[Rfam]
RNA: mir-2003 microRNA precursor family
Organism: Lytechinus variegatus
RNA sequence: GCUGGUUGGCCUAAACCCGUAAGGUCUUAACUUGUGCUGGAGUUACGAGUACACAGGUUAUGCCCUUUGGGUAGUAGGCCGGACAGA
Numbered sequence: 001g002c003u004g005g006u007u008g009g010c011c012u013a014a015a016c017c018c019g020u021a022a023g024g025u026c027u028u029a030a031c032u033u034g035u036g037c038u039g040g041a042g043u044u045a046c047g048a049g050u051a052c053a054c055a056g057g058u059u060a061u062g063c064c065c066u067u068u069g070g071g072u073a074g075u076a077g078g079c080c081g082g083a084c085a086g087a
Stems, first nucleotide, its partner, number of pairs: 002086003007081007015072005021067004026062001028060009037049002040046001